RNA sequence: CUUCAAGAGAUGCGGUCGGAAAGCUCCGACUGGACCGCACACCAACCCCAUGUUCCUGGGUGGUUCGGAUGACGAAGCGGCCUUCGCCAUGGCACGUGAGUGCCGGUCCGGCGCGGGCAAGAGCACACC
Numbered sequence: 001c002u003u004c005a006a007g008a009g010a011u012g013c014g015g016u017c018g019g020a021a022a023g024c025u026c027c028g029a030c031u032g033g034a035c036c037g038c039a040c041a042c043c044a045a046c047c048c049c050a051u052g053u054u055c056c057u058g059g060g061u062g063g064u065u066c067g068g069a070u071g072a073c074g075a076a077g078c079g080g081c082c083u084u085c086g087c088c089a090u091g092g093c094a095c096g097u098g099a100g101u102g103c104c105g106g107u108c109c110g111g112c113g114c115g116g117g118c119a120a121g122a123g124c125a126c127a128c129c
Stems, first nucleotide, its partner, number of pairs: 001077004009040001012038006022031002041064003046060003080118004085113004
RNA: SAM (S-adenosyl methionine) riboswitch aptamer